[Rfam]
RNA sequence: CAUCAUGCACUUGAGGCCAUAGCAGAAGUGCUCAUGGUGCAGUCCUGUCAGAUUCCAAUGAAUCUGUGAAUUCUACU
Numbered sequence: 001c002a003u004c005a006u007g008c009a010c011u012u013g014a015g016g017c018c019a020u021a022g023c024a025g026a027a028g029u030g031c032u033c034a035u036g037g038u039g040c041a042g043u044c045c046u047g048u049c050a051g052a053u054u055c056c057a058a059u060g061a062a063u064c065u066g067u068g069a070a071u072u073c074u075a076c077u
Stems, first nucleotide, its partner, number of pairs: 013045001015044003021077002024074004028040003049066007
A member of the RNA family "Mammalian CPEB3 ribozyme" from Crocodylus porosus, 77 nucleotides long.